[Rfam]
The record is a 63-nucleotide sequence from Methylobacterium symbioticum, which matches "Fluoride riboswitch aptamer (crcB RNA motif)" in Rfam.
Gene Ontology terms of the family: positive regulation of gene expression and response to fluoride.

RNA sequence: GGUUGCGAUGGGGAUGGAGUUCCCCGACAACCGCCCGCGUGGGCUGAUGACUCCUACCGCGAA
Numbered sequence: 001g002g003u004u005g006c007g008a009u010g011g012g013g014a015u016g017g018a019g020u021u022c023c024c025c026g027a028c029a030a031c032c033g034c035c036c037g038c039g040u041g042g043g044c045u046g047a048u049g050a051c052u053c054c055u056a057c058c059g060c061g062a063a
Base pairs, nucleotide, nucleotide: 010025011024012023013022016054017053018052019051020050021049033044034043035042036041

Taxonomically the source falls in Methylobacterium (Bacteria, Alphaproteobacteria, Hyphomicrobiales, Methylobacteriaceae).